[Rfam]
RNA sequence: ACGGAAGCCGGGUGAGGCCAAGGCCGAAUCGGAAGAGAAGGUUCGUCCUCCUAAGCCAGGCAUCCCAGCACGGACCCUGCGAACCCACGCGGAGCACAAGCCGCGAUAAUGGCAGAAGUGUUGCGGGCCUGCGCCAUUGCGAUAGCGAACGCCAAGCGACCAUCCCUUGGGUGGGGUGAGCAGCCGUAGCGCACCGCAAGGACGCCGAGGCCACCCACGCAGCCCACCGAGCACGCUUGGUACCCAGUGUUCCGUGCUAGCGGGCGACGGGCCGAAUCAUCUUCGGGCCGUCGCCCGCUUCACGUU
Numbered sequence: 001a002c003g004g005a006a007g008c009c010g011g012g013u014g015a016g017g018c019c020a021a022g023g024c025c026g027a028a029u030c031g032g033a034a035g036a037g038a039a040g041g042u043u044c045g046u047c048c049u050c051c052u053a054a055g056c057c058a059g060g061c062a063u064c065c066c067a068g069c070a071c072g073g074a075c076c077c078u079g080c081g082a083a084c085c086c087a088c089g090c091g092g093a094g095c096a097c098a099a100g101c102c103g104c105g106a107u108a109a110u111g112g113c114a115g116a117a118g119u120g121u122u123g124c125g126g127g128c129c130u131g132c133g134c135c136a137u138u139g140c141g142a143u144a145g146c147g148a149a150c151g152c153c154a155a156g157c158g159a160c161c162a163u164c165c166c167u168u169g170g171g172u173g174g175g176g177u178g179a180g181c182a183g184c185c186g187u188a189g190c191g192c193a194c195c196g197c198a199a200g201g202a203c204g205c206c207g208a209g210g211c212c213a214c215c216c217a218c219g220c221a222g223c224c225c226a227c228c229g230a231g232c233a234c235g236c237u238u239g240g241u242a243c244c245c246a247g248u249g250u251u252c253c254g255u256g257c258u259a260g261c262g263g264g265c266g267a268c269g270g271g272c273c274g275a276a277u278c279a280u281c282u283u284c285g286g287g288c289c290g291u292c293g294c295c296c297g298c299u300u301c302a303c304g305u306u
Base pairs, nucleotide, nucleotide: 003065004064007061008060009059011057012056016052017051021049022048025045026044027043028042029041030040067258068257069256070255071254072253073252074251077247078246079245081244085240086239087238089236090235091234094232095231100113101112102111120223121222122221123220124219125218126212127211128210129209130208131205132204133203137199138198139197140196141195145192146191147190149187150186151185153183160180161178162177163176164175165174166173260298261297262296263295264294265293266292267291268290269289270288272286273285274284
RNA: Mycobacterium smegmatis small RNA 1
Organism: Mycobacterium antarcticum